Notes
Rfam assigns this 351-nucleotide part of an RNA from an uncultured bacterium to the family "Bacterial large subunit ribosomal RNA". Gene Ontology terms of the family: ribosome and structural constituent of ribosome.
RNA sequence: CGAGAGAACCCUCGUUAAGGAACUCGGCAAUCUAACCGCGUACGUUUGCAAGAAGCGGUGCCCCGACGUAAGUCGGGGUCGCAGUGAAAUGGCUCCUGAGACUGUUUAGCAAAAACACAGGACUCUGCUAACUCGUAAGAGGAUGUAUAGGGUCUGAGACCUGCCCGGUGCCGGAAGGUUAAGGCAAGAGGUUAUUUCUGGCUUCACCGCUAGAGAGAAGCUUCGACCCGAAGCCCCGGUGAACGGCGGCCGUAACUAUAACGGUCCUAAGGUAGCGAAAUUCCUUGUCGGGUAAGUUCCGACCCGCACGAAUGGUAUAACAACGGGAGCGCUGUCUCAACGAGGAUCUCG
Numbered sequence: 001c002g003a004g005a006g007a008a009c010c011c012u013c014g015u016u017a018a019g020g021a022a023c024u025c026g027g028c029a030a031u032c033u034a035a036c037c038g039c040g041u042a043c044g045u046u047u048g049c050a051a052g053a054a055g056c057g058g059u060g061c062c063c064c065g066a067c068g069u070a071a072g073u074c075g076g077g078g079u080c081g082c083a084g085u086g087a088a089a090u091g092g093c094u095c096c097u098g099a100g101a102c103u104g105u106u107u108a109g110c111a112a113a114a115a116c117a118c119a120g121g122a123c124u125c126u127g128c129u130a131a132c133u134c135g136u137a138a139g140a141g142g143a144u145g146u147a148u149a150g151g152g153u154c155u156g157a158g159a160c161c162u163g164c165c166c167g168g169u170g171c172c173g174g175a176a177g178g179u180u181a182a183g184g185c186a187a188g189a190g191g192u193u194a195u196u197u198c199u200g201g202c203u204u205c206a207c208c209g210c211u212a213g214a215g216a217g218a219a220g221c222u223u224c225g226a227c228c229c230g231a232a233g234c235c236c237c238g239g240u241g242a243a244c245g246g247c248g249g250c251c252g253u254a255a256c257u258a259u260a261a262c263g264g265u266c267c268u269a270a271g272g273u274a275g276c277g278a279a280a281u282u283c284c285u286u287g288u289c290g291g292g293u294a295a296g297u298u299c300c301g302a303c304c305c306g307c308a309c310g311a312a313u314g315g316u317a318u319a320a321c322a323a324c325g326g327g328a329g330c331g332c333u334g335u336c337u338c339a340a341c342g343a344g345g346a347u348c349u350c351g
Stems, first nucleotide, its partner, number of pairs: 001351004010345007018337003035059005044049001060079008080084001092330007100321001103117003120155008128145001132141003159316003163247003168244002170240005177235003183229002188224005195216008248266006267271001277304001287303006